A member of the RNA family "Nuclear RNase P" from Aaosphaeria arxii, 384 nucleotides long.
Pairs were carried over by alignment from the consensus structure, which is taken from published work.
The source organism's lineage runs through Eukaryota, Fungi, Pezizomycotina, Pleosporomycetidae and Aaosphaeria arxii.
Gene Ontology terms of the family: ribonuclease P complex, ribonuclease P activity and tRNA processing.
Rfam classes the family as a ribozyme.
A search with the family's covariance model found it, with a score of 48 bits.
RNA sequence: GCCUUGCCAAAGCCGUGUAUCUCUGCUCACAAACGGACGCUGAGCUUCUCGCACGGUCGUCACUUUCUUGCAGAUGAGAAAUUCGGAGUAAUCUUCACUUUCACUUGCCAUCUCGCUCUGCGAGCUCUGGCAUCGCUGCCCGUAAGGGCCUGGCGUGACUCACGUCUGCAUCCGGCAUCAGAAAGCUCAGGGCCCUUAAAGCAAAGGCAUUGCUCCCUCGGGGGUGGUGUUGGCGCUGAAACGGUGUCUCUAUGGGAGUCGGUGCGAAGAAUGUGUGCUCUGCGGAGCGACACAGUAGUACAAUACAUGGCGUACUUUACCUCGAUUAGCCUUUCCAGGCGAAAGAGGGUCGGUAUAAUUUGAUUCCGAUUACUCUGGCGAGGC
Numbered sequence: 001g002c003c004u005u006g007c008c009a010a011a012g013c014c015g016u017g018u019a020u021c022u023c024u025g026c027u028c029a030c031a032a033a034c035g036g037a038c039g040c041u042g043a044g045c046u047u048c049u050c051g052c053a054c055g056g057u058c059g060u061c062a063c064u065u066u067c068u069u070g071c072a073g074a075u076g077a078g079a080a081a082u083u084c085g086g087a088g089u090a091a092u093c094u095u096c097a098c099u100u101u102c103a104c105u106u107g108c109c110a111u112c113u114c115g116c117u118c119u120g121c122g123a124g125c126u127c128u129g130g131c132a133u134c135g136c137u138g139c140c141c142g143u144a145a146g147g148g149c150c151u152g153g154c155g156u157g158a159c160u161c162a163c164g165u166c167u168g169c170a171u172c173c174g175g176c177a178u179c180a181g182a183a184a185g186c187u188c189a190g191g192g193c194c195c196u197u198a199a200a201g202c203a204a205a206g207g208c209a210u211u212g213c214u215c216c217c218u219c220g221g222g223g224g225u226g227g228u229g230u231u232g233g234c235g236c237u238g239a240a241a242c243g244g245u246g247u248c249u250c251u252a253u254g255g256g257a258g259u260c261g262g263u264g265c266g267a268a269g270a271a272u273g274u275g276u277g278c279u280c281u282g283c284g285g286a287g288c289g290a291c292a293c294a295g296u297a298g299u300a301c302a303a304u305a306c307a308u309g310g311c312g313u314a315c316u317u318u319a320c321c322u323c324g325a326u327u328a329g330c331c332u333u334u335c336c337a338g339g340c341g342a343a344a345g346a347g348g349g350u351c352g353g354u355a356u357a358a359u360u361u362g363a364u365u366c367c368g369a370u371u372a373c374u375c376u377g378g379c380g381a382g383g384c
Base pairs, nucleotide, nucleotide: 001384002383003382004381007378008377009376012311013310014309015308016307017306018305022074023073024072025071036061037060038059039058084368085367086366087365088364093269094268095267096266138149139148140147141146152166153165154164155163156162168265169264170263172262173261174260190251191250192249312356313355314354315353316352